Notes: TPP riboswitch aptamer (THI element): a 113-nucleotide RNA sequence from Corynebacterium riegelii. Rfam describes the family as follows. Vitamin B(1) in its active form thiamin pyrophosphate (TPP) is an essential coenzyme that is synthesised by coupling of pyrimidine and thiazole moieties in bacteria. The match comes from Rfam's covariance-model search (55 bits).
RNA sequence: CGUGCCCAACACGGGCGCCCAAGGCUUAAGGGCUGAGAUCGUGCUAAUGCCGCACGAGCACCGUUUGAACCUGUCUGGUUAGCACCAGCGAAGGAAGUAGAAGGAGCGGCAAU
Numbered sequence: 001c002g003u004g005c006c007c008a009a010c011a012c013g014g015g016c017g018c019c020c021a022a023g024g025c026u027u028a029a030g031g032g033c034u035g036a037g038a039u040c041g042u043g044c045u046a047a048u049g050c051c052g053c054a055c056g057a058g059c060a061c062c063g064u065u066u067g068a069a070c071c072u073g074u075c076u077g078g079u080u081a082g083c084a085c086c087a088g089c090g091a092a093g094g095a096a097g098u099a100g101a102a103g104g105a106g107c108g109g110c111a112a113u
Stems, first nucleotide, its partner, number of pairs: 007100001009098002011064004017033004040056005070094003075088004